About this RNA:
Rfam assigns this 63-nucleotide RNA from Barnesiella sp. An55 to the family "Fluoride riboswitch aptamer (crcB RNA motif)". Gene Ontology terms of the family: response to fluoride and positive regulation of gene expression. Rfam 15.1 lists 2,293 matches to the family in 1,982 species. Pairs were carried over by alignment from the consensus structure, which is taken from published work.
RNA sequence: CUUUGUCCCGGCUAUGGGAUUAGCCUUUAACCGCCUUUAUGUGCUGAUGAUCCCUACUUGAGA
Numbered sequence: 001c002u003u004u005g006u007c008c009c010g011g012c013u014a015u016g017g018g019a020u021u022a023g024c025c026u027u028u029a030a031c032c033g034c035c036u037u038u039a040u041g042u043g044c045u046g047a048u049g050a051u052c053c054c055u056a057c058u059u060g061a062g063a
Stems, first nucleotide, its partner, number of pairs: 010025004016054006033044002035041001